Description: Rfam assigns this 36-nucleotide RNA sequence from Loxodonta africana to the family "Iron response element I". The match comes from Rfam's covariance-model search (42 bits). A reference for the family is Walden et al. (2006), "Structure of dual function iron regulatory protein 1 complexed with ferritin IRE-RNA", Science. By type it is a cis-regulatory element.
RNA sequence: CAGUCUCCUUCUUCAACAGUGUUUGAAAGGAUCCUG
Numbered sequence: 001c002a003g004u005c006u007c008c009u010u011c012u013u014c015a016a017c018a019g020u021g022u023u024u025g026a027a028a029g030g031a032u033c034c035u036g
Base pairs, nucleotide, nucleotide: 001036002035003034006031007030008029010028012027013026014025015024016023017021